Notes:
mir-282 microRNA precursor family: a 110-nucleotide RNA sequence from Musca domestica. The match comes from Rfam's covariance-model search (75 bits). On this family, see Li et al., BMC Genomics 2009: "Direct sequencing and expression analysis of a large number of miRNAs in Aedes aegypti and a multi-species survey of novel mosquito miRNAs".

[Rfam]
RNA sequence: UCUUGGUCUGAAUCUAGCCUCUACUAGGCUUUGUCUGUAACUUGGCUUGAAGCUCGCUUCAAAUAUAUUAUCCAGACAUAGCCUAAAAGAGGUUAGGUGAAACAGGAAAC
Numbered sequence: 001u002c003u004u005g006g007u008c009u010g011a012a013u014c015u016a017g018c019c020u021c022u023a024c025u026a027g028g029c030u031u032u033g034u035c036u037g038u039a040a041c042u043u044g045g046c047u048u049g050a051a052g053c054u055c056g057c058u059u060c061a062a063a064u065a066u067a068u069u070a071u072c073c074a075g076a077c078a079u080a081g082c083c084u085a086a087a088a089g090a091g092g093u094u095a096g097g098u099g100a101a102a103c104a105g106g107a108a109a110c
Stems, first nucleotide, its partner, number of pairs: 012098009027083004032078005